Shown here is a 99-nucleotide sequence from Youngiibacter fragilis, a member of the family "SAM riboswitch aptamer (S box leader)". For this family Rfam cites "The plasticity of a structural motif in RNA: structural polymorphism of a kink turn as a function of its environment" (Daldrop and Lilley, RNA, 2013). The organism belongs to Youngiibacter fragilis, within Bacteria. A search with the family's covariance model found it, with a score of 79 bits. The family's consensus secondary structure is taken from published work.
RNA sequence: UGCUUAUCGAGAGCGAUGGAGGGAACUGGCCCUGUGAAAUCCGGCAACCUGCCUUAAGGCGUGGUGCCAAAUCCAGCGGUUAUGGCCGGGAGAUGAGAA
Numbered sequence: 001u002g003c004u005u006a007u008c009g010a011g012a013g014c015g016a017u018g019g020a021g022g023g024a025a026c027u028g029g030c031c032c033u034g035u036g037a038a039a040u041c042c043g044g045c046a047a048c049c050u051g052c053c054u055u056a057a058g059g060c061g062u063g064g065u066g067c068c069a070a071a072u073c074c075a076g077c078g079g080u081u082a083u084g085g086c087c088g089g090g091a092g093a094u095g096a097g098a099a
Base pairs, nucleotide, nucleotide: 001099003097004096005095006094007093008092013042015041016040017039021032022031023030026076027075028074029073043068044067045066046065048064049063050061051060052059053058072091077088078087079086080085